[Rfam]
RNA: TPP riboswitch aptamer (THI element)
RNA sequence: UUUCACAGCUACGGGAGCCUAGAAGACUAGGCUGAGAAGAUGACUGAUCUGUCACAGACCGUUAACCUGAUCUGGAUCAUGCCAGCGGAGGGAAGACUGUAUUUGUAAUGU
Dot-bracket structure: .....(((.(((((..(((((......)))))......(.((((......)))))...))))...(((...((((......))))...)))...).)))............